A member of the RNA family "Small Cajal body specific RNA 24" from Mesocricetus auratus, 132 nucleotides long. It scores 70 bits against the family's covariance model.

RNA sequence: UGAAUCUUGCUAUAAAAAUGUAUAGAUUCUCCAAGUGAACAAAACUUUUUGUAAACGUCCUAGAGAAAUAUAGCAUUUUUUCUGUUCAUCCUUUGCAAGAAGAGAGGGAGAAUCGUUCCACUGCUGACAUUU
Numbered sequence: 001u002g003a004a005u006c007u008u009g010c011u012a013u014a015a016a017a018a019u020g021u022a023u024a025g026a027u028u029c030u031c032c033a034a035g036u037g038a039a040c041a042a043a044a045c046u047u048u049u050u051g052u053a054a055a056c057g058u059c060c061u062a063g064a065g066a067a068a069u070a071u072a073g074c075a076u077u078u079u080u081u082c083u084g085u086u087c088a089u090c091c092u093u094u095g096c097a098a099g100a101a102g103a104g105a106g107g108g109a110g111a112a113u114c115g116u117u118c119c120a121c122u123g124c125u126g127a128c129a130u131u132u
Base pairs, nucleotide, nucleotide: 002060004058005057007054008053009052010051020045021044023041027039028038029037071126072125073124074123075122091106092105093104094103
Description
Taxonomically the source falls in Mesocricetus (Eukaryota, Dipnotetrapodomorpha, Mammalia, Cricetidae). On this family, see Darzacq et al., EMBO J 2002: "Cajal body-specific small nuclear RNAs: a novel class of 2'-O-methylation and pseudouridylation guide RNAs".